Shown here is a 125-nucleotide sequence from Erwinia tracheiphila, a member of the family "EFASI RNA". The sequence is in the family's curated seed alignment.

RNA sequence: UCGUCCAGGUACUGAGGCGUUCGUCUGAUUAAGACGAACGGGGAGCAACAAACCGUCGUACAGAGUGCUAAACGGGCUCCUGCAAUAACUCAACUCAGCCUCGCCAUGCUACACAGUACCUGACG
Number, nucleotide and partner (000 for none) at each position: 001u000002c125003g124004u123005c122006c000007a121008g120009g119010u118011a117012c116013u115014g114015a000016g000017g000018c040019g039020u038021u037022c036023g035024u034025c033026u000027g000028a000029u000030u000031a000032a000033g025034a024035c023036g022037a021038a020039c019040g018041g081042g080043g079044a078045g000046c000047a000048a000049c000050a000051a000052a000053c075054c074055g073056u072057c000058g068059u067060a066061c065062a000063g000064a000065g061066u060067g059068c058069u000070a000071a000072a056073c055074g054075g053076g000077c000078u044079c043080c042081u041082g000083c000084a000085a000086u000087a000088a000089c000090u000091c000092a000093a000094c000095u000096c000097a000098g000099c000100c000101u000102c000103g000104c000105c000106a000107u000108g000109c000110u000111a000112c000113a000114c014115a013116g012117u011118a010119c009120c008121u007122g005123a004124c003125g002